[Rfam]
RNA sequence: AAUCGGAAAAUAGCGCCAGAUCUGUAUUUACAGAAGACGAGGAAGAAGCUUAUCGAAAUAUUCGGCGGGUGGCUUCAGGGACUGCACUCUAUAGAUAAAAGACAAACCUUUCUUGCAAAAGAAAAAACAAAGCUUUUAUCCGCAGACAG
Numbered sequence: 001a002a003u004c005g006g007a008a009a010a011u012a013g014c015g016c017c018a019g020a021u022c023u024g025u026a027u028u029u030a031c032a033g034a035a036g037a038c039g040a041g042g043a044a045g046a047a048g049c050u051u052a053u054c055g056a057a058a059u060a061u062u063c064g065g066c067g068g069g070u071g072g073c074u075u076c077a078g079g080g081a082c083u084g085c086a087c088u089c090u091a092u093a094g095a096u097a098a099a100a101g102a103c104a105a106a107c108c109u110u111u112c113u114u115g116c117a118a119a120a121g122a123a124a125a126a127a128c129a130a131a132g133c134u135u136u137u138a139u140c141c142g143c144a145g146a147c148a149g
Base pairs, nucleotide, nucleotide: 021034022033023032024031025030045076046075047074048073049072053065054064055063056062077090078089079088080087095139096138097137098136099135100134101133109124110123111122112121113120114119
RNA: glmS glucosamine-6-phosphate activated ribozyme aptamer
Organism: Enterococcus alcedinis